[Rfam]
RNA: Small nucleolar RNA SNORD101
RNA sequence: GUUUGAAUGAUGACUGGAGUCGUCGGAUACCCCUCCACUCUCUGCAUGAGUGAGACACUAACAGUCUGACAGAC
Numbered sequence: 001g002u003u004u005g006a007a008u009g010a011u012g013a014c015u016g017g018a019g020u021c022g023u024c025g026g027a028u029a030c031c032c033c034u035c036c037a038c039u040c041u042c043u044g045c046a047u048g049a050g051u052g053a054g055a056c057a058c059u060a061a062c063a064g065u066c067u068g069a070c071a072g073a074c
Stems, first nucleotide, its partner, number of pairs: 001074005